Rfam assigns this 96-nucleotide RNA from Carnegiea gigantea to the family "Small nucleolar RNA Z266". Gene Ontology terms of the family: nucleolus and RNA processing. For this family Rfam cites "The high diversity of snoRNAs in plants: identification and comparative study of 120 snoRNA genes from Oryza sativa" (Chen et al., Nucleic Acids Res, 2003). A search with the family's covariance model found it, with a score of 59 bits. The family has 11 seed sequences and 719 matches in Rfam 15.1.
[Rfam]
RNA sequence: AGCGGCAAGAUUGAUGAUCGAAUUAGAUGUGUGAACGAGUAAUGUCCUCGUGAACUCAAACUUAUGAGGCUUUUUGAUAUUCUGACUUGUCCAGUU
Numbered sequence: 001a002g003c004g005g006c007a008a009g010a011u012u013g014a015u016g017a018u019c020g021a022a023u024u025a026g027a028u029g030u031g032u033g034a035a036c037g038a039g040u041a042a043u044g045u046c047c048u049c050g051u052g053a054a055c056u057c058a059a060a061c062u063u064a065u066g067a068g069g070c071u072u073u074u075u076g077a078u079a080u081u082c083u084g085a086c087u088u089g090u091c092c093a094g095u096u
Base pairs, nucleotide, nucleotide: 001096002095003094004091005090006089007088008087009086